[Rfam]
RNA sequence: CUACAUCUACCCUGUAGAUCCGAAUUUGUGAGAAAACUAGUAACAAAUUCGGUUCUAGAGAGGUUUGUGUG
Numbered sequence: 001c002u003a004c005a006u007c008u009a010c011c012c013u014g015u016a017g018a019u020c021c022g023a024a025u026u027u028g029u030g031a032g033a034a035a036a037c038u039a040g041u042a043a044c045a046a047a048u049u050c051g052g053u054u055c056u057a058g059a060g061a062g063g064u065u066u067g068u069g070u071g
Stems, first nucleotide, its partner, number of pairs: 002069004011060001016056003020052010